[Rfam]
RNA sequence: UUUCCAACUUCGCUGAGUUUCCAAAUGGGAAACGGGGGAACCACAUUGCAUGCUGUUGGCAUUGGCCGAUGGCAGCGGUGUAAAAUAGGGGUGAAUCCCAAGCGCAUUCCAUGCGCUGGUUGACAACUAAUACAGGCAUAAGCGCUGUUAGUUGCAGCAUGAUCGACGGCCGACUCGAUGUCGGCAGCGUGCUGGCAGCUAGUAUCGAAGCAAGCGCCAUUAGUUGCAACGUCGUUGACAACUGACAACAAGUAUCGCUUUUGUCAGUUACAACAUGGGUAGGGCGACUCUCAAGUCCGAAUCCGUCAGCUAACCUCGUAAGCGUUAAGAGAGAGGUAAA
Numbered sequence: 001u002u003u004c005c006a007a008c009u010u011c012g013c014u015g016a017g018u019u020u021c022c023a024a025a026u027g028g029g030a031a032a033c034g035g036g037g038g039a040a041c042c043a044c045a046u047u048g049c050a051u052g053c054u055g056u057u058g059g060c061a062u063u064g065g066c067c068g069a070u071g072g073c074a075g076c077g078g079u080g081u082a083a084a085a086u087a088g089g090g091g092u093g094a095a096u097c098c099c100a101a102g103c104g105c106a107u108u109c110c111a112u113g114c115g116c117u118g119g120u121u122g123a124c125a126a127c128u129a130a131u132a133c134a135g136g137c138a139u140a141a142g143c144g145c146u147g148u149u150a151g152u153u154g155c156a157g158c159a160u161g162a163u164c165g166a167c168g169g170c171c172g173a174c175u176c177g178a179u180g181u182c183g184g185c186a187g188c189g190u191g192c193u194g195g196c197a198g199c200u201a202g203u204a205u206c207g208a209a210g211c212a213a214g215c216g217c218c219a220u221u222a223g224u225u226g227c228a229a230c231g232u233c234g235u236u237g238a239c240a241a242c243u244g245a246c247a248a249c250a251a252g253u254a255u256c257g258c259u260u261u262u263g264u265c266a267g268u269u270a271c272a273a274c275a276u277g278g279g280u281a282g283g284g285c286g287a288c289u290c291u292c293a294a295g296u297c298c299g300a301a302u303c304c305g306u307c308a309g310c311u312a313a314c315c316u317c318g319u320a321a322g323c324g325u326u327a328a329g330a331g332a333g334a335g336g337u338a339a340a
Stems, first nucleotide, its partner, number of pairs: 011324004018031003032319006042088001089304003097279004282298004
This 340-nucleotide sequence from Paenibacillus solanacearum belongs to the Rfam family "c-di-AMP riboswitch aptamer (ydaO/yuaA leader)". This family represents a conserved RNA structure found upstream of the ydaO and yuaA genes in Bacillus subtilis and related genes in other bacteria. The pairing is the family consensus, mapped onto this sequence. It scores 78 bits against the family's covariance model. Taxonomically the source falls in Paenibacillus (Bacteria, Bacillati, Caryophanales, Paenibacillaceae).